[Rfam]
RNA sequence: CAAACGGCUUUUUUCAAAGCCACCGAACGUAUGCAAUUGCUGAUAU
Dot-bracket structure: .....((((((....)))))).........................